Rfam assigns this 91-nucleotide sequence from Pelolinea submarina to the family "c-di-GMP-I riboswitch aptamer". From the family's description: GEMM was predicted in a large-scale screen for bacterial structured RNA regulatory elements.

RNA sequence: ACUCGAUAAUAGCAAACCUGUUGAAAGAUAGGGACGCAAAGCUCUGGGUCUACGGCUGAUGCAAGUCAGCUAAGAUCGCCAAGCCGCCGAA
Numbered sequence: 001a002c003u004c005g006a007u008a009a010u011a012g013c014a015a016a017c018c019u020g021u022u023g024a025a026a027g028a029u030a031g032g033g034a035c036g037c038a039a040a041g042c043u044c045u046g047g048g049u050c051u052a053c054g055g056c057u058g059a060u061g062c063a064a065g066u067c068a069g070c071u072a073a074g075a076u077c078g079c080c081a082a083g084c085c086g087c088c089g090a091a
Stems, first nucleotide, its partner, number of pairs: 012037002017032006041084003045081003048076003055070006